Rfam assigns this 76-nucleotide sequence to the family "CyVA-1 RNA". Rfam describes the family as follows. Cyanobacteria, Acidobacteria (1 example), Verrucomicrobia (1 example). The sequence is in the family's curated seed alignment. The family's consensus secondary structure is taken from published work.
RNA sequence: AGGACGGUGCGGAGUUUUUGCCGUUUCCUCCGUUUAAGGUCCGCCGAAGGAGAACGGCGACAGGCGGCCACGAACU
Numbered sequence: 001a002g003g004a005c006g007g008u009g010c011g012g013a014g015u016u017u018u019u020g021c022c023g024u025u026u027c028c029u030c031c032g033u034u035u036a037a038g039g040u041c042c043g044c045c046g047a048a049g050g051a052g053a054a055c056g057g058c059g060a061c062a063g064g065c066g067g068c069c070a071c072g073a074a075c076u
Stems, first nucleotide, its partner, number of pairs: 001076002005072002009033004038069002041067005